[Rfam]
RNA sequence: GAUUAAGUAAAUAACUUUCCGUAGAAAGUAGGUACCUUAUGGUGUAACGUUAUACAACCUGCCGAGGAAGACGAUAUAUAUAUUAUUUAGUAUAUAAAGGUCUCUUCGUGCGUCUACGGAGAGACCUUUAAUUAUAUAAAA
Numbered sequence: 001g002a003u004u005a006a007g008u009a010a011a012u013a014a015c016u017u018u019c020c021g022u023a024g025a026a027a028g029u030a031g032g033u034a035c036c037u038u039a040u041g042g043u044g045u046a047a048c049g050u051u052a053u054a055c056a057a058c059c060u061g062c063c064g065a066g067g068a069a070g071a072c073g074a075u076a077u078a079u080a081u082a083u084u085a086u087u088u089a090g091u092a093u094a095u096a097a098a099g100g101u102c103u104c105u106u107c108g109u110g111c112g113u114c115u116a117c118g119g120a121g122a123g124a125c126c127u128u129u130a131a132u133u134a135u136a137u138a139a140a141a
Base pairs, nucleotide, nucleotide: 028062029061030060031059032058033057034043035042036041099126100125101124102123103122104121105120106119107118108117

The family of this 141-nucleotide RNA sequence from Clostridium cellulovorans is "Ribosomal protein L10 leader". By type it is a cis-regulatory leader. Gene Ontology term of the family: regulation of gene expression. Rfam describes the family as follows. This family is a putative r-protein leader autoregulatory structure found in B. subtilis and other low-GC Gram-positive bacteria. The base pairs follow the family's consensus structure, which was predicted with CMfinder.